Small nucleolar RNA SNORA43: a 134-nucleotide sequence. The family's RNA type in Rfam is H/ACA-box small nucleolar RNA. Gene Ontology terms of the family: RNA processing and nucleolus. The family is grouped with related families in Rfam's "SNORA17 clan". ACA43 is a member of the H/ACA class of snoRNA that guide the sites of modification of uridines to pseudouridines. It is one of the family's seed sequences. Rfam 15.1 lists 492 matches to the family in 142 species.

RNA sequence: GCUGUCCUGGACCUGUCGGCACCAGACAGUUGCUCUGCCGUGCCUGUGACCUCGGGGCAAAAAGGAAGUGGCGAUUUCUACACUCAGUGCCCGGGAACCAGUGGGCACUGAGAAUGGUUUAUGGCCUGACAUGA
Numbered sequence: 001g002c003u004g005u006c007c008u009g010g011a012c013c014u015g016u017c018g019g020c021a022c023c024a025g026a027c028a029g030u031u032g033c034u035c036u037g038c039c040g041u042g043c044c045u046g047u048g049a050c051c052u053c054g055g056g057g058c059a060a061a062a063a064g065g066a067a068g069u070g071g072c073g074a075u076u077u078c079u080a081c082a083c084u085c086a087g088u089g090c091c092c093g094g095g096a097a098c099c100a101g102u103g104g105g106c107a108c109u110g111a112g113a114a115u116g117g118u119u120u121a122u123g124g125c126c127u128g129a130c131a132u133g134a
Base pairs, nucleotide, nucleotide: 003059004058005057006056007055008054009053010052023046024045025044070126071125072124078117079116080115083112084111088107089106090105091104092103093102